This 47-nucleotide RNA from Chloropsis hardwickii belongs to the Rfam family "Guanidine-II riboswitch aptamer (mini-ykkC)". The source organism's lineage runs through Eukaryota, Sarcopterygii, Archosauria, Passeriformes and Chloropsis.
RNA sequence: UAAACGGGACGACCCGUUUACGCGUCAUUUUAUCGGGGACGACCCCA
Numbered sequence: 001u002a003a004a005c006g007g008g009a010c011g012a013c014c015c016g017u018u019u020a021c022g023c024g025u026c027a028u029u030u031u032a033u034c035g036g037g038g039a040c041g042a043c044c045c046c047a
Stems, first nucleotide, its partner, number of pairs: 001020008035046004
Dot-bracket structure: ((((((((....))))))))..............((((....)))).
Rfam's curators write: Simpler in structure and has fewer highly conserved nucleotide positions than the ykkC-yxkD leader. Despite this each of its two stem-loop structures directly bind free guanidine. Therefore, mini-ykkC RNA motif represents a distinct class of guanidine-sensing RNAs. Its crystal structure was also determined.